[Rfam]
RNA sequence: AUAGAUAUGAUGGAGCUCCUGUUCAGGCCAAAACAAGAAAGAAAGAAAGAUAUACAAUUAGAAGGGGAAUAGCAGCUGCUGAGUCAUGGAUACCCUUUAAUUUGGUUUCAAGCUAAUUAAUAAGCUGCUGCUGCUGCUGCUGCUGCUGCUAGCUAAGCUUAAUUGCAGGUUAAAAGGGUUUGCAUGAACCAGGAGAUGAUAUUUUUCUCCUUCUUCUUCUCUUAUUUGGUUUGAAGGGAGCUCUAUUUAUUUACUAA
Numbered sequence: 001a002u003a004g005a006u007a008u009g010a011u012g013g014a015g016c017u018c019c020u021g022u023u024c025a026g027g028c029c030a031a032a033a034c035a036a037g038a039a040a041g042a043a044a045g046a047a048a049g050a051u052a053u054a055c056a057a058u059u060a061g062a063a064g065g066g067g068a069a070u071a072g073c074a075g076c077u078g079c080u081g082a083g084u085c086a087u088g089g090a091u092a093c094c095c096u097u098u099a100a101u102u103u104g105g106u107u108u109c110a111a112g113c114u115a116a117u118u119a120a121u122a123a124g125c126u127g128c129u130g131c132u133g134c135u136g137c138u139g140c141u142g143c144u145g146c147u148g149c150u151a152g153c154u155a156a157g158c159u160u161a162a163u164u165g166c167a168g169g170u171u172a173a174a175a176g177g178g179u180u181u182g183c184a185u186g187a188a189c190c191a192g193g194a195g196a197u198g199a200u201a202u203u204u205u206u207c208u209c210c211u212u213c214u215u216c217u218u219c220u221c222u223u224a225u226u227u228g229g230u231u232u233g234a235a236g237g238g239a240g241c242u243c244u245a246u247u248u249a250u251u252u253a254c255u256a257a
Stems, first nucleotide, its partner, number of pairs: 013243008024233007037220001076195002079192003085186004093178006
RNA: MIR159 microRNA precursor family